[Rfam]
RNA sequence: UCGCAUAGGUGAGUAUUACCUAUGCGAGCGAAGUAGCAGUAGCA
Numbered sequence: 001u002c003g004c005a006u007a008g009g010u011g012a013g014u015a016u017u018a019c020c021u022a023u024g025c026g027a028g029c030g031a032a033g034u035a036g037c038a039g040u041a042g043c044a
Stems, first nucleotide, its partner, number of pairs: 001027009
Shown here is a 44-nucleotide sequence, a member of the family "ssNA-helicase RNA". Pairs were carried over by alignment from the consensus structure, which is taken from published work.